The family of this 87-nucleotide RNA from Massilia cavernae is "c-di-GMP-I riboswitch aptamer". The organism belongs to Massilia, within Bacteria. From the family's description: GEMM was predicted in a large-scale screen for bacterial structured RNA regulatory elements. Genes associated with GEMM are involved in a diverse array of functions, including chemotaxis regulation, signal transduction, secretion and chitin.
RNA sequence: AACUGCAAAAAGCAAACCUCGCGAAAGCGGGUGACGCAAAGUCUACGGUCUACCGGGCGCAAGCCCCACGACGGCAGGACUGCCAGA
Numbered sequence: 001a002a003c004u005g006c007a008a009a010a011a012g013c014a015a016a017c018c019u020c021g022c023g024a025a026a027g028c029g030g031g032u033g034a035c036g037c038a039a040a041g042u043c044u045a046c047g048g049u050c051u052a053c054c055g056g057g058c059g060c061a062a063g064c065c066c067c068a069c070g071a072c073g074g075c076a077g078g079a080c081u082g083c084c085a086g087a
Stems, first nucleotide, its partner, number of pairs: 012037002018031005040081004047075001048072003055066004